The family of this 103-nucleotide RNA from Malus baccata is "Small nucleolar RNA Z103". Rfam classes the family as a C/D-box small nucleolar RNA. Lineage of the source: Eukaryota > Viridiplantae > Embryophyta > Spermatophyta > Malus. Its family is annotated with nucleolus and RNA processing in the Gene Ontology.
[Rfam]
RNA sequence: AUGGAAGUGAUGAUUAUUUCUCCAAAUGAUGAAGGCUGAAAUAACUUAGCAUACUUUGUCUCUAUAUUACAAAGAGGCAUCUAACUAGCUAUAUCUGAUCCAU
Numbered sequence: 001a002u003g004g005a006a007g008u009g010a011u012g013a014u015u016a017u018u019u020c021u022c023c024a025a026a027u028g029a030u031g032a033a034g035g036c037u038g039a040a041a042u043a044a045c046u047u048a049g050c051a052u053a054c055u056u057u058g059u060c061u062c063u064a065u066a067u068u069a070c071a072a073a074g075a076g077g078c079a080u081c082u083a084a085c086u087a088g089c090u091a092u093a094u095c096u097g098a099u100c101c102a103u
Stems, first nucleotide, its partner, number of pairs: 001103005